[Rfam]
The family of this 487-nucleotide part of an RNA is "Bacterial small subunit ribosomal RNA". The base pairs follow the family's consensus structure, which is taken from published work. A reference for the family is Yusupov et al. (2001), "Crystal structure of the ribosome at 5.5 A resolution", Science.

RNA sequence: UUAAGUAAAAAUUUAAACUUAGUUUCGAGUGAAUGCUAUCUAGGGACUUGACACAUGCAAGUCGAAUGCCAAACACUAUGUGUUUGGACAUGGCGUACGGGUGAGUAAUGAAUAGGCAAGCUACCCAUAGGAUUGGUGGAAUACCAAAUAUCAAAAGGAUAAUUUCCGCCUAUGGAUGUACCUAUUGAAUAGAUUAGGUAGUUGGUAAGGUAACGGCUUACCAAGCCAAUGAUCUAUAGUUGGUCUGAGAGGAUGAUCAACCACAGUGGGAAUGAAAAAGGCCCACACGAGCAAAGUAUCGGCAGCAGUGAGGAAUCUUGGUCAAUGGCCGAAAGGCUGAACCAGUCACCUAGAAGGAUGGAUACAUUAAUUUGAUAAAGUCCUAACGGAAAGGAGGAUAAUGACUGUACUUUCCUAUUAAUCCCGACCAAUCUCGUGCCAGCAGUCGCGGUAAUACGAGAGGGGUAAGCAUUAUUCAUCAUUAAUG
Numbered sequence: 001u002u003a004a005g006u007a008a009a010a011a012u013u014u015a016a017a018c019u020u021a022g023u024u025u026c027g028a029g030u031g032a033a034u035g036c037u038a039u040c041u042a043g044g045g046a047c048u049u050g051a052c053a054c055a056u057g058c059a060a061g062u063c064g065a066a067u068g069c070c071a072a073a074c075a076c077u078a079u080g081u082g083u084u085u086g087g088a089c090a091u092g093g094c095g096u097a098c099g100g101g102u103g104a105g106u107a108a109u110g111a112a113u114a115g116g117c118a119a120g121c122u123a124c125c126c127a128u129a130g131g132a133u134u135g136g137u138g139g140a141a142u143a144c145c146a147a148a149u150a151u152c153a154a155a156a157g158g159a160u161a162a163u164u165u166c167c168g169c170c171u172a173u174g175g176a177u178g179u180a181c182c183u184a185u186u187g188a189a190u191a192g193a194u195u196a197g198g199u200a201g202u203u204g205g206u207a208a209g210g211u212a213a214c215g216g217c218u219u220a221c222c223a224a225g226c227c228a229a230u231g232a233u234c235u236a237u238a239g240u241u242g243g244u245c246u247g248a249g250a251g252g253a254u255g256a257u258c259a260a261c262c263a264c265a266g267u268g269g270g271a272a273u274g275a276a277a278a279a280g281g282c283c284c285a286c287a288c289g290a291g292c293a294a295a296g297u298a299u300c301g302g303c304a305g306c307a308g309u310g311a312g313g314a315a316u317c318u319u320g321g322u323c324a325a326u327g328g329c330c331g332a333a334a335g336g337c338u339g340a341a342c343c344a345g346u347c348a349c350c351u352a353g354a355a356g357g358a359u360g361g362a363u364a365c366a367u368u369a370a371u372u373u374g375a376u377a378a379a380g381u382c383c384u385a386a387c388g389g390a391a392a393g394g395a396g397g398a399u400a401a402u403g404a405c406u407g408u409a410c411u412u413u414c415c416u417a418u419u420a421a422u423c424c425c426g427a428c429c430a431a432u433c434u435c436g437u438g439c440c441a442g443c444a445g446u447c448g449c450g451g452u453a454a455u456a457c458g459a460g461a462g463g464g465g466u467a468a469g470c471a472u473u474a475u476u477c478a479u480c481a482u483u484a485a486u487g
Stems, first nucleotide, its partner, number of pairs: 009025005027477004032473006039354006045347002047312001052310003056307003061094003066091003069087002072084005101264003111186006120179002125175007133147004157167003190236003197227003202224008239261004243254004266286005288301003318344001320343003326339005356383004363374002366371001388415006397405001421466005432461005442449002